[Rfam]
RNA sequence: CCAAUCCUGGACCUGGCAUACAAUGUAGAUUUCUGUGUGGAUCAAGCUACAGCUACAUUGUCUGCUGGGUUUCAGGUGGUCGAA
Numbered sequence: 001c002c003a004a005u006c007c008u009g010g011a012c013c014u015g016g017c018a019u020a021c022a023a024u025g026u027a028g029a030u031u032u033c034u035g036u037g038u039g040g041a042u043c044a045a046g047c048u049a050c051a052g053c054u055a056c057a058u059u060g061u062c063u064g065c066u067g068g069g070u071u072u073c074a075g076g077u078g079g080u081c082g083a084a
Stems, first nucleotide, its partner, number of pairs: 013068006020061009033052004